[Rfam]
RNA: SAM riboswitch aptamer (S box leader)
RNA sequence: CUCUUAUCUAGAGAGGCGGAGGGACUGGCCCGAAGAUGCCUCGGCAACCGAUAGAUCAGGUGCCAAUUCCAGCAGGGCUGUUUGCCUUGAAAGAUAAGAG
Numbered sequence: 001c002u003c004u005u006a007u008c009u010a011g012a013g014a015g016g017c018g019g020a021g022g023g024a025c026u027g028g029c030c031c032g033a034a035g036a037u038g039c040c041u042c043g044g045c046a047a048c049c050g051a052u053a054g055a056u057c058a059g060g061u062g063c064c065a066a067u068u069c070c071a072g073c074a075g076g077g078c079u080g081u082u083u084g085c086c087u088u089g090a091a092a093g094a095u096a097a098g099a100g
Stems, first nucleotide, its partner, number of pairs: 001100008013042005021031003025072004043064004048060002050057002068092001073089006